[Rfam]
RNA sequence: AGUUACAAGUUUGAGGCCACAGCAAAAGUCUCAUGGCACAGCCCUGUCAGAUUCCAACAAAUCUGCAAAUUCUGCU
Dot-bracket structure: ............[.[[[...((((.((((........)).]]]]...((((((......))))))....)).))))
Numbered sequence: 001a002g003u004u005a006c007a008a009g010u011u012u013g014a015g016g017c018c019a020c021a022g023c024a025a026a027a028g029u030c031u032c033a034u035g036g037c038a039c040a041g042c043c044c045u046g047u048c049a050g051a052u053u054c055c056a057a058c059a060a061a062u063c064u065g066c067a068a069a070u071u072c073u074g075c076u
Stems, first nucleotide, its partner, number of pairs: 013044001015043003021076004026071002028039002048065006

Rfam assigns this 76-nucleotide RNA sequence from Alligator sinensis to the family "Mammalian CPEB3 ribozyme". Pairs were carried over by alignment from the consensus structure, which is taken from published work. It scores 44 bits against the family's covariance model.